[Rfam]
The record is a 236-nucleotide RNA from Dipodomys ordii, which matches "Small nucleolar RNA SNORA53" in Rfam. Rfam 15.1 lists 1,090 matches to the family in 800 species. It scores 252 bits against the family's covariance model. About the family: The snoRNA ACA53 belongs to the H/ACA family of pseudouridylation guide snoRNAs. Its family is annotated with RNA processing and nucleolus in the Gene Ontology. Taxonomically the source falls in Dipodomys (Eukaryota, Opisthokonta, Eutheria, Rodentia).
RNA sequence: AACAUGCUUCCUUAGAUCCACCUUUGUGGAUGAAUCUUGAUCUGAGUUCUACUUGUGAACUUCUGUUUCUUGUAGUUCCAGUCAAAGAAACAUCCAGCAACUUUUUGGUUGUACAGUCAAAGGUGCUUGAGUCAUUGGCAUGUGAGAUGAAUAUACCUGCAUGUUAGUCUAACGUUCUGAUAGAAAUGACAUGCUGUCAUCCUCUACUCUCAGGACUCGACUGGUGUGCGGACAUU
Numbered sequence: 001a002a003c004a005u006g007c008u009u010c011c012u013u014a015g016a017u018c019c020a021c022c023u024u025u026g027u028g029g030a031u032g033a034a035u036c037u038u039g040a041u042c043u044g045a046g047u048u049c050u051a052c053u054u055g056u057g058a059a060c061u062u063c064u065g066u067u068u069c070u071u072g073u074a075g076u077u078c079c080a081g082u083c084a085a086a087g088a089a090a091c092a093u094c095c096a097g098c099a100a101c102u103u104u105u106u107g108g109u110u111g112u113a114c115a116g117u118c119a120a121a122g123g124u125g126c127u128u129g130a131g132u133c134a135u136u137g138g139c140a141u142g143u144g145a146g147a148u149g150a151a152u153a154u155a156c157c158u159g160c161a162u163g164u165u166a167g168u169c170u171a172a173c174g175u176u177c178u179g180a181u182a183g184a185a186a187u188g189a190c191a192u193g194c195u196g197u198c199a200u201c202c203u204c205u206a207c208u209c210u211c212a213g214g215a216c217u218c219g220a221c222u223g224g225u226g227u228g229c230g231g232a233c234a235u236u
Stems, first nucleotide, its partner, number of pairs: 002143007011131005019125008027096006035088004042081003046078001049075004055069001057068004097112006157231005164224001166222004176214005182208002187206002193197001